Notes
Rfam assigns this 77-nucleotide RNA from Eudromia elegans to the family "mir-190 microRNA precursor family". Its Rfam clan is "mir-50 clan". The literature on the family includes a 2006 paper in Nucleic Acids Res by Kloosterman et al., "Cloning and expression of new microRNAs from zebrafish". The source organism's lineage runs through Eukaryota, Chordata, Euteleostomi, Dinosauria and Eudromia.

RNA sequence: GCCUCUGUCUGAUAUGUUUGAUAUUAGGUUGUUCUGCUGCAAACCCAACUAAAUAUCAAACAUAUUCGUACAGCGCC
Numbered sequence: 001g002c003c004u005c006u007g008u009c010u011g012a013u014a015u016g017u018u019u020g021a022u023a024u025u026a027g028g029u030u031g032u033u034c035u036g037c038u039g040c041a042a043a044c045c046c047a048a049c050u051a052a053a054u055a056u057c058a059a060a061c062a063u064a065u066u067c068g069u070a071c072a073g074c075g076c077c
Stems, first nucleotide, its partner, number of pairs: 005073004011066015027050005
Rfam links the family to the GO terms RISC complex and miRNA-mediated post-transcriptional gene silencing.